[Rfam]
A member of the RNA family "mir-651 microRNA precursor family" from Homo sapiens, 86 nucleotides long. Its family is annotated with miRNA-mediated post-transcriptional gene silencing and RISC complex in the Gene Ontology. The base pairs follow the family's consensus structure, which was predicted with RNAalifold. A reference for the family is Brameier (2010), "Genome-wide comparative analysis of microRNAs in three non-human primates", BMC Res Notes.
RNA sequence: AUCUAUCACUGCUUUUUAGGAUAAGCUUGACUUUUGUUCAAAUAAAAAUGCAAAAGGAAAGUGUAUCCUAAAAGGCAAUGACAGUU
Numbered sequence: 001a002u003c004u005a006u007c008a009c010u011g012c013u014u015u016u017u018a019g020g021a022u023a024a025g026c027u028u029g030a031c032u033u034u035u036g037u038u039c040a041a042a043u044a045a046a047a048a049u050g051c052a053a054a055a056g057g058a059a060a061g062u063g064u065a066u067c068c069u070a071a072a073a074g075g076c077a078a079u080g081a082c083a084g085u086u
Base pairs, nucleotide, nucleotide: 003084004083006081007080008079010077011076012075013074014073015072016071017070018069019068020067021066022065023064025062026061027060028059031056032055033054034053035052036051037050